[Rfam]
RNA sequence: UGGGGCUGAGGUAGUAGAUUGAAUAGUUGUGGGGUUUCCCGACCUCUUUCUUCAGCUAACUAUCCAAUCUACUGUCUUUCCCAA
Numbered sequence: 001u002g003g004g005g006c007u008g009a010g011g012u013a014g015u016a017g018a019u020u021g022a023a024u025a026g027u028u029g030u031g032g033g034g035u036u037u038c039c040c041g042a043c044c045u046c047u048u049u050c051u052u053c054a055g056c057u058a059a060c061u062a063u064c065c066a067a068u069c070u071a072c073u074g075u076c077u078u079u080c081c082c083a084a
Base pairs, nucleotide, nucleotide: 001084003082004081005080008078009077010076011075012074013073014072015071016070017069018068019067020066021065023063024062025061026060027059032046033045034044048055049054
Shown here is an 84-nucleotide RNA from Oryzias javanicus, a member of the family "let-7 microRNA precursor family". Clan: let-7 microRNA precursor clan. NCBI's taxonomy places the organism under Eukaryota, Neoteleostei, Acanthomorphata, Adrianichthyoidei, Oryzias. From the family's description: This family represents the microRNAs (miRNA) let-7 and mir-98. let-7 was identified from a study of developmental timing in C. elegans, and was later shown to be part of a much larger class of non-coding RNAs termed miRNAs. It scores 64 bits against the family's covariance model.